RNA sequence: CGCUGCGCCGCGGGAGAGCGUCGUCCGAUCACCUCGGGCGGCCGCCGAAGGAGCAACACCUCUCCGUCAAACUCUCAGGCACCAGGGACCGUGGCAGUUGA
Numbered sequence: 001c002g003c004u005g006c007g008c009c010g011c012g013g014g015a016g017a018g019c020g021u022c023g024u025c026c027g028a029u030c031a032c033c034u035c036g037g038g039c040g041g042c043c044g045c046c047g048a049a050g051g052a053g054c055a056a057c058a059c060c061u062c063u064c065c066g067u068c069a070a071a072c073u074c075u076c077a078g079g080c081a082c083c084a085g086g087g088a089c090c091g092u093g094g095c096a097g098u099u100g101a
Base pairs, nucleotide, nucleotide: 007095008094009093010092011091012090013089020042021041022040023039024038025037026036027035044080045079046078047076048075051074052073053072058067059066
Dot-bracket structure: ......(((((((......((((((((.......)))))))).(((((..(((....((......))....))))).)))........)))))))......
This 101-nucleotide sequence from Gordonia humi belongs to the Rfam family "Glycine riboswitch aptamer". The match comes from Rfam's covariance-model search (57 bits). This family represents the bacterial glycine riboswitch.